Small nucleolar RNA SNORA51: a 133-nucleotide RNA sequence from Castor canadensis. Pairs were carried over by alignment from the consensus structure, which was predicted with PFOLD. Its family is annotated with nucleolus and RNA processing in the Gene Ontology. The family's RNA type in Rfam is H/ACA-box small nucleolar RNA. Rfam 15.1 lists 2,121 matches to the family in 210 species. Rfam describes the family as follows. ACA51 is a member of the H/ACA class of snoRNA that guide the sites of modification of uridines to pseudouridines. The organism belongs to Castor, within Eukaryota.
[Rfam]
RNA sequence: AGCCUCCUAGUGCUUACCACAGGCUGUGUUCUUAUACUGACUGUAUAGAAAGAGAAGGCAAAGUAAAUCUACCCCAUAUACACCUCAGCCCAGGCCCUGGGGCCUGAUCUGUAUUGUGAAUGGAGAGACAUGG
Numbered sequence: 001a002g003c004c005u006c007c008u009a010g011u012g013c014u015u016a017c018c019a020c021a022g023g024c025u026g027u028g029u030u031c032u033u034a035u036a037c038u039g040a041c042u043g044u045a046u047a048g049a050a051a052g053a054g055a056a057g058g059c060a061a062a063g064u065a066a067a068u069c070u071a072c073c074c075c076a077u078a079u080a081c082a083c084c085u086c087a088g089c090c091c092a093g094g095c096c097c098u099g100g101g102g103c104c105u106g107a108u109c110u111g112u113a114u115u116g117u118g119a120a121u122g123g124a125g126a127g128a129c130a131u132g133g
Stems, first nucleotide, its partner, number of pairs: 002059004007054002020043003026037004072125001074123004086111003091106005